[Rfam]
RNA: Hepatitis C virus stem-loop I
RNA sequence: CAAUAGGGUCGCGGGGACACUCAGGAAGCUUGGGUGCCCCCCCCUAC
Numbered sequence: 001c002a003a004u005a006g007g008g009u010c011g012c013g014g015g016g017a018c019a020c021u022c023a024g025g026a027a028g029c030u031u032g033g034g035u036g037c038c039c040c041c042c043c044c045u046a047c
Base pairs, nucleotide, nucleotide: 006042007041008040011038018036019035020034021033022032023031024030025029